[Rfam]
RNA sequence: CACCCAGGACGUCCUGGGUGCGUUUCGAGUUUUUGGGGGACGUCCCCC
Numbered sequence: 001c002a003c004c005c006a007g008g009a010c011g012u013c014c015u016g017g018g019u020g021c022g023u024u025u026c027g028a029g030u031u032u033u034u035g036g037g038g039g040a041c042g043u044c045c046c047c048c
Stems, first nucleotide, its partner, number of pairs: 001020008035048005
Rfam assigns this 48-nucleotide sequence from Taxus chinensis to the family "Guanidine-II riboswitch aptamer (mini-ykkC)". It scores 34 bits against the family's covariance model. Simpler in structure and has fewer highly conserved nucleotide positions than the ykkC-yxkD leader. On this family, see Huang et al., Cell Chem Biol 2017: "The Structure of the Guanidine-II Riboswitch". Taxonomically the source falls in Taxus (Eukaryota, Euphyllophyta, Acrogymnospermae, Taxaceae). Gene Ontology term of the family: regulation of gene expression.